The record is a 74-nucleotide RNA from Propionispora vibrioides, which matches "Fluoride riboswitch aptamer (crcB RNA motif)" in Rfam. The base pairs follow the family's consensus structure, which is taken from published work. It scores 36 bits against the family's covariance model.
[Rfam]
RNA sequence: AAUCAUAAAAGGGAUGAAGUUCCCCUGCGGAAUAAUCCGGAAUGCUGAAAUCAGCUGAUGACUUCUACUGUUGU
Numbered sequence: 001a002a003u004c005a006u007a008a009a010a011g012g013g014a015u016g017a018a019g020u021u022c023c024c025c026u027g028c029g030g031a032a033u034a035a036u037c038c039g040g041a042a043u044g045c046u047g048a049a050a051u052c053a054g055c056u057g058a059u060g061a062c063u064u065c066u067a068c069u070g071u072u073g074u
Stems, first nucleotide, its partner, number of pairs: 010026004016065006044055004